This 45-nucleotide RNA from Mytilus edulis belongs to the Rfam family "Histone 3' UTR stem-loop". The family has 50 seed sequences and 44,596 matches in Rfam 15.1. It is annotated as a cis-regulatory element.
RNA sequence: UAAACGGCCCUUUUCAGGGCCAUCUAUAUUUUACAGAAAUAAUCU
Numbered sequence: 001u002a003a004a005c006g007g008c009c010c011u012u013u014u015c016a017g018g019g020c021c022a023u024c025u026a027u028a029u030u031u032u033a034c035a036g037a038a039a040u041a042a043u044c045u
Stems, first nucleotide, its partner, number of pairs: 006021006